Notes:
The record is an 89-nucleotide RNA from Duganella sp. Root198D2, which matches "c-di-GMP-I riboswitch aptamer" in Rfam. The organism belongs to Duganella, within Bacteria. From the family's description: GEMM was predicted in a large-scale screen for bacterial structured RNA regulatory elements.
RNA sequence: GUCUGACAAAGGCAAACCGUGCGAAAGCACGGGACGCAAAGUCGACGGUCUAACGGCGCGCAAGCGUCUAUGACGGCUGGACUGCCAGA
Numbered sequence: 001g002u003c004u005g006a007c008a009a010a011g012g013c014a015a016a017c018c019g020u021g022c023g024a025a026a027g028c029a030c031g032g033g034a035c036g037c038a039a040a041g042u043c044g045a046c047g048g049u050c051u052a053a054c055g056g057c058g059c060g061c062a063a064g065c066g067u068c069u070a071u072g073a074c075g076g077c078u079g080g081a082c083u084g085c086c087a088g089a
Stems, first nucleotide, its partner, number of pairs: 012037002017032006040083004047077001048074003055068004
Dot-bracket structure: ...........((...((((((....))))))...))..((((...((((....((((......))))...)))..)..))))......